[Rfam]
RNA: Bacillaceae-1 RNA
RNA sequence: AUAGAAGGAACAUCGGUUAUGAGCGCCACGUCGUGUGGCAACGCCGAUGUAACCUACAUCCUGUAGG
Numbered sequence: 001a002u003a004g005a006a007g008g009a010a011c012a013u014c015g016g017u018u019a020u021g022a023g024c025g026c027c028a029c030g031u032c033g034u035g036u037g038g039c040a041a042c043g044c045c046g047a048u049g050u051a052a053c054c055u056a057c058a059u060c061c062u063g064u065a066g067g
Stems, first nucleotide, its partner, number of pairs: 011049007025039005053067005